[Rfam]
RNA sequence: CUGUGAUAAAGGCAAACCGGUCGAAAGGCCGGGACGCAAAGCCUCCGGUCUAAGGGCAUCGCCUAAGAUAGCGGGGAUACCAUA
Numbered sequence: 001c002u003g004u005g006a007u008a009a010a011g012g013c014a015a016a017c018c019g020g021u022c023g024a025a026a027g028g029c030c031g032g033g034a035c036g037c038a039a040a041g042c043c044u045c046c047g048g049u050c051u052a053a054g055g056g057c058a059u060c061g062c063c064u065a066a067g068a069u070a071g072c073g074g075g076g077a078u079a080c081c082a083u084a
Stems, first nucleotide, its partner, number of pairs: 012037002017032006040078001042076002045074003048069003055063003

Rfam assigns this 84-nucleotide RNA sequence from Ferrimonas balearica to the family "c-di-GMP-I riboswitch aptamer". It scores 82 bits against the family's covariance model.